[Rfam]
RNA sequence: GAUGGAUUUAAUUCAAUCCAUUAACUUAGUUUUUAUGUAGUGGAUGGAUUGGAUGAAUUUUGUC
Numbered sequence: 001g002a003u004g005g006a007u008u009u010a011a012u013u014c015a016a017u018c019c020a021u022u023a024a025c026u027u028a029g030u031u032u033u034u035a036u037g038u039a040g041u042g043g044a045u046g047g048a049u050u051g052g053a054u055g056a057a058u059u060u061u062g063u064c
Stems, first nucleotide, its partner, number of pairs: 004060005011054012026039001029036001
MIR5291 microRNA precursor family: a 64-nucleotide RNA from Lathyrus oleraceus. Taxonomically the source falls in Lathyrus (Eukaryota, eudicotyledons, Pentapetalae, Fabales). Gene Ontology terms of the family: RISC complex and miRNA-mediated post-transcriptional gene silencing.